[Rfam]
RNA sequence: GUGUGUUAAUGAUGGUCUGUCUUUAAACUCAGUAGAGGAAGCAGACUUGAUACAUAACACUC
Numbered sequence: 001g002u003g004u005g006u007u008a009a010u011g012a013u014g015g016u017c018u019g020u021c022u023u024u025a026a027a028c029u030c031a032g033u034a035g036a037g038g039a040a041g042c043a044g045a046c047u048u049g050a051u052a053c054a055u056a057a058c059a060c061u062c
Base pairs, nucleotide, nucleotide: 001062003060004059005058014047015046016045017044018043019042020041022039023038028037029036030035

This 62-nucleotide RNA sequence from Anabas testudineus belongs to the Rfam family "Selenocysteine insertion sequence 1". Lineage of the source: Eukaryota > Chordata > Euteleosteomorpha > Ctenosquamata > Anabas. Gene Ontology term of the family: selenocysteine incorporation. Rfam's curators write: The incorporation of selenocysteine into a protein sequence is directed by an in-frame UGA codon (usually a stop codon) within the coding region of the mRNA. Selenoprotein mRNAs contain a conserved secondary structure in the 3' UTR that is required for the distinction of UGA stop from UGA selenocysteine. The selenocysteine insertion sequence (SECIS) is around 60 nt in length and adopts a hairpin structure which is sufficiently well-defined and conserved to act as a computational screen for selenoprotein genes.